The record is a 160-nucleotide sequence from Xenorhabdus japonica, which matches "Glm Y RNA activator of glmS mRNA" in Rfam. The match comes from Rfam's covariance-model search (142 bits). For this family Rfam cites "Two seemingly homologous noncoding RNAs act hierarchically to activate glmS mRNA translation" (Urban and Vogel, PLoS Biol, 2008). Clan: Glm clan. The source organism's lineage runs through Bacteria, Pseudomonadati, Enterobacterales, Morganellaceae and Xenorhabdus. By type it is a small RNA. This family consists of a number of bacterial RNA genes of around 167 bases in length.
[Rfam]
RNA sequence: AGUUGCUCAUUCAACUUUUUAUGUAGGCCCACAAUCAGGUGGAAACAUGCCACAUAAGCCCAGAAUGACGCCAAAGUAAGGUGCCUACCGUCCAACUUCAUGAUACUCGCCUUCGGGCUUUAUCAAACACAGGGCGACACGUGGAGUGAGGCACCACCUA
Numbered sequence: 001a002g003u004u005g006c007u008c009a010u011u012c013a014a015c016u017u018u019u020u021a022u023g024u025a026g027g028c029c030c031a032c033a034a035u036c037a038g039g040u041g042g043a044a045a046c047a048u049g050c051c052a053c054a055u056a057a058g059c060c061c062a063g064a065a066u067g068a069c070g071c072c073a074a075a076g077u078a079a080g081g082u083g084c085c086u087a088c089c090g091u092c093c094a095a096c097u098u099c100a101u102g103a104u105a106c107u108c109g110c111c112u113u114c115g116g117g118c119u120u121u122a123u124c125a126a127a128c129a130c131a132g133g134g135c136g137a138c139a140c141g142u143g144g145a146g147u148g149a150g151g152c153a154c155c156a157c158c159u160a
Stems, first nucleotide, its partner, number of pairs: 005071002007068006019057006026051003080155007089136005101125005138148003